[Rfam]
About this RNA:
The family of this 54-nucleotide RNA from Megalops atlanticus is "UnaL2 LINE 3' element". Its family is annotated with transposition, RNA-mediated in the Gene Ontology. It scores 57 bits against the family's covariance model. Pairs were carried over by alignment from the consensus structure, which is taken from published work. Rfam classes the family as a cis-regulatory element. The eel long interspersed element (LINE) UnaL2 and its partner short interspersed element (SINE) share a conserved 3' tail containing a stem-loop that is critical for their retrotransposition. Presumably, the first step of retrotransposition is the recognition of their 3' tails by UnaL2-encoded reverse transcriptase. The solution structure of a 17-nucleotide RNA derived from the 3' tail of UnaL2 was determined by NMR.

Nucleotides: 054
Base pairs, nucleotide, nucleotide: 013043014041015040016039020036022034023033024032025031
Number, partner (000 for none) and nucleotide at each position: 001000g002000a003000u004000u005000g006000u007000a008000a009000c010000c011000a012000a013043u014041g015040u016039a017000a018000g019000u020036c021000u022034c023033u024032c025031u026000g027000g028000a029000u030000a031025a032024g033023a034022g035000c036020g037000u038000c039016u040015g041014c042000u043013a044000a045000a046000u047000g048000c049000c050000a051000a052000u053000a054000a